This 153-nucleotide RNA from Aleadryas rufinucha belongs to the Rfam family "Small nucleolar RNA SNORA8". Rfam describes the family as follows. ACA8 is a member of the H/ACA class of snoRNA that guide the sites of modification of uridines to pseudouridines.
RNA sequence: UGCAGUGUUACAGUACCUGCACCCAGCAGCCUUCUCCUGGUUCAAAACAUCUUAUGGAUGUUCAAAAAGCAGUGCUACAGCAGUGCAGUGUUUGGCAUCCUUGGUUUUUCUCCUGCUGUGUCUGUUAAACCUGGUAUUUUUUCUGAAAUAGUC
Dot-bracket structure: .(((.((..........((((.(((..((.....................))..))).)))....)...)).)))...((.(((.(((.....(((((...................)))))........)))..))).))............